[Rfam]
RNA sequence: GUUGAAUAAGUAUAUUUUCCUUAGACAAUAGGUGCAAAAUGCGUAACGGUAAAACCAACCUAUCCAGGAUUCCAAUAUAAAGUAAAGGUGGUCUCUCUGUGUCUAUAGGGAGGCUUUUGAUUUUUAUAU
Numbered sequence: 001g002u003u004g005a006a007u008a009a010g011u012a013u014a015u016u017u018u019c020c021u022u023a024g025a026c027a028a029u030a031g032g033u034g035c036a037a038a039a040u041g042c043g044u045a046a047c048g049g050u051a052a053a054a055c056c057a058a059c060c061u062a063u064c065c066a067g068g069a070u071u072c073c074a075a076u077a078u079a080a081a082g083u084a085a086a087g088g089u090g091g092u093c094u095c096u097c098u099g100u101g102u103c104u105a106u107a108g109g110g111a112g113g114c115u116u117u118u119g120a121u122u123u124u125u126a127u128a129u
Stems, first nucleotide, its partner, number of pairs: 028063006034042003091114010
The family of this 129-nucleotide RNA from Clostridium kluyveri is "Ribosomal protein L10 leader". The family's consensus secondary structure was predicted with CMfinder. Rfam's curators put it in the seed alignment. Rfam classes the family as a cis-regulatory leader.